Rhodo-rpoB RNA: a 94-nucleotide RNA from Paracoccus shanxieyensis.

RNA sequence: GGUUCGGGAGUUGCGCGGUGGGACGCGCGGCACGAAUGGGACCCCACCCCUUAUUCGCCGCCUUGUGCCGGUCGGGCCCCCGACGACCGGUUGC
Numbered sequence: 001g002g003u004u005c006g007g008g009a010g011u012u013g014c015g016c017g018g019u020g021g022g023a024c025g026c027g028c029g030g031c032a033c034g035a036a037u038g039g040g041a042c043c044c045c046a047c048c049c050c051u052u053a054u055u056c057g058c059c060g061c062c063u064u065g066u067g068c069c070g071g072u073c074g075g076g077c078c079c080c081c082g083a084c085g086a087c088c089g090g091u092u093g094c
Stems, first nucleotide, its partner, number of pairs: 001043005010031008065094003069090001070088005